This 71-nucleotide sequence from Calypte anna belongs to the Rfam family "mir-551 microRNA precursor family". Taxonomically the source falls in Calypte (Eukaryota, Chordata, Sarcopterygii, Saurischia).
[Rfam]
RNA sequence: UGACCCUGGAAAUCAAGUAUAGGUGGGGCCUGUGCUGUGAUGGGGCGACCCAUACUUGGUUUCAAGGGUCU
Numbered sequence: 001u002g003a004c005c006c007u008g009g010a011a012a013u014c015a016a017g018u019a020u021a022g023g024u025g026g027g028g029c030c031u032g033u034g035c036u037g038u039g040a041u042g043g044g045g046c047g048a049c050c051c052a053u054a055c056u057u058g059g060u061u062u063c064a065a066g067g068g069u070c071u
Base pairs, nucleotide, nucleotide: 002070003069004068005067006066007065009063010062011061012060013059014058016056017055022050023049024048028046029045030044031043
On this family, see Shao et al., Gene 2008: "Identification of novel chicken microRNAs and analysis of their genomic organization".
Gene Ontology terms of the family: RISC complex and miRNA-mediated post-transcriptional gene silencing.